Eukaryotic large subunit ribosomal RNA: a 307-nucleotide part of an RNA from Plasmodium vivax. The literature on the family includes a 2001 paper in Science by Yusupov et al., "Crystal structure of the ribosome at 5.5 A resolution". Pairs were carried over by alignment from the consensus structure, which is taken from published work.
[Rfam]
RNA sequence: GGAUUAAGAGAGAAAAAAAGUAAAGCGGGAAAAUGAUUCUUCGGAUUUAUUUUUCUUCUUUAUUAAAAGGAACAUCAGCGAACUUGGAUAAUUAUGAUAAAACAAUUCACUGAAGUUGUUUGGAAUUUUUAUUCCCUGCUCUUCACUUAGUCCCCACUCUAACGAGGGGACAACUGGUUUUAUAACUCUUCUCAAAAGGGGAAUUAUCUUAUUUGCUGAGGAAAAUCAAAAUUGCAUUGAUUUAUUUCUUUGCUGUUUGAGUUGUUCCUACAUGGUGCUUUCUUAACCCACUCGUCUUGAAACACGG
Numbered sequence: 001g002g003a004u005u006a007a008g009a010g011a012g013a014a015a016a017a018a019a020g021u022a023a024a025g026c027g028g029g030a031a032a033a034u035g036a037u038u039c040u041u042c043g044g045a046u047u048u049a050u051u052u053u054u055c056u057u058c059u060u061u062a063u064u065a066a067a068a069g070g071a072a073c074a075u076c077a078g079c080g081a082a083c084u085u086g087g088a089u090a091a092u093u094a095u096g097a098u099a100a101a102a103c104a105a106u107u108c109a110c111u112g113a114a115g116u117u118g119u120u121u122g123g124a125a126u127u128u129u130u131a132u133u134c135c136c137u138g139c140u141c142u143u144c145a146c147u148u149a150g151u152c153c154c155c156a157c158u159c160u161a162a163c164g165a166g167g168g169g170a171c172a173a174c175u176g177g178u179u180u181u182a183u184a185a186c187u188c189u190u191c192u193c194a195a196a197a198g199g200g201g202a203a204u205u206a207u208c209u210u211a212u213u214u215g216c217u218g219a220g221g222a223a224a225a226u227c228a229a230a231a232u233u234g235c236a237u238u239g240a241u242u243u244a245u246u247u248c249u250u251u252g253c254u255g256u257u258u259g260a261g262u263u264g265u266u267c268c269u270a271c272a273u274g275g276u277g278c279u280u281u282c283u284u285a286a287c288c289c290a291c292u293c294g295u296c297u298u299g300a301a302a303c304a305c306g307g
Stems, first nucleotide, its partner, number of pairs: 001289002004286009017064001020063006068269007292307004